[Rfam]
RNA: Small nucleolar RNA SNORA31
Organism: Carlito syrichta
RNA sequence: AUACAUCUAUUUGACAGACCUGGAGCAGUUUAUUGUCUGCUAUCGAGGUUUCCACUGUAGAUGCAAGAAAAAAGUGUCCUUACGCUUUCUGUCUGUGUGAUUGUGGCAGCAAAGAUUGAAUAGAGGAAUACUGGG
Numbered sequence: 001a002u003a004c005a006u007c008u009a010u011u012u013g014a015c016a017g018a019c020c021u022g023g024a025g026c027a028g029u030u031u032a033u034u035g036u037c038u039g040c041u042a043u044c045g046a047g048g049u050u051u052c053c054a055c056u057g058u059a060g061a062u063g064c065a066a067g068a069a070a071a072a073a074g075u076g077u078c079c080u081u082a083c084g085c086u087u088u089c090u091g092u093c094u095g096u097g098u099g100a101u102u103g104u105g106g107c108a109g110c111a112a113a114g115a116u117u118g119a120a121u122a123g124a125g126g127a128a129u130a131c132u133g134g135g
Base pairs, nucleotide, nucleotide: 002065004063005062006061007060008059012054013053016051017050018049019048020047024041025040026039027038028037029035077127078126079125080124081123085118088115089114090113093109094108095107096106